[Rfam]
RNA sequence: AUUUGCCCAUGGUAUCUAAUGUCCAGAUUUUAUCUGUGGCUGGACAUUUCGUUUACAGGGCAGAAAAAAAAUUGUAAACAGGUCUUGCGACACAGUUAGCUGGUCUAUACAAGCUUACUGUUACUUUAUCCCUGCUUACAUCU
Numbered sequence: 001a002u003u004u005g006c007c008c009a010u011g012g013u014a015u016c017u018a019a020u021g022u023c024c025a026g027a028u029u030u031u032a033u034c035u036g037u038g039g040c041u042g043g044a045c046a047u048u049u050c051g052u053u054u055a056c057a058g059g060g061c062a063g064a065a066a067a068a069a070a071a072u073u074g075u076a077a078a079c080a081g082g083u084c085u086u087g088c089g090a091c092a093c094a095g096u097u098a099g100c101u102g103g104u105c106u107a108u109a110c111a112a113g114c115u116u117a118c119u120g121u122u123a124c125u126u127u128a129u130c131c132c133u134g135c136u137u138a139c140a141u142c143u
Stems, first nucleotide, its partner, number of pairs: 003063006018048009028038001077136001079134003092121005098115004